[Rfam]
RNA sequence: AUAACUAAUGGGCAAAACCAUACGAAAGAUGGUGACGCAAAACCUUGGAUCUAAGGUCAUAAAAUAUGGCUAUGAUUGCCAGGCUGCAAAU
Numbered sequence: 001a002u003a004a005c006u007a008a009u010g011g012g013c014a015a016a017a018c019c020a021u022a023c024g025a026a027a028g029a030u031g032g033u034g035a036c037g038c039a040a041a042a043c044c045u046u047g048g049a050u051c052u053a054a055g056g057u058c059a060u061a062a063a064a065u066a067u068g069g070c071u072a073u074g075a076u077u078g079c080c081a082g083g084c085u086g087c088a089a090a091u
Stems, first nucleotide, its partner, number of pairs: 012038002017033005023028001041085001043083002046081003049076003056070004
c-di-GMP-I riboswitch aptamer: a 91-nucleotide sequence from Desulfofarcimen acetoxidans. The base pairs follow the family's consensus structure, which is taken from published work. It scores 70 bits against the family's covariance model.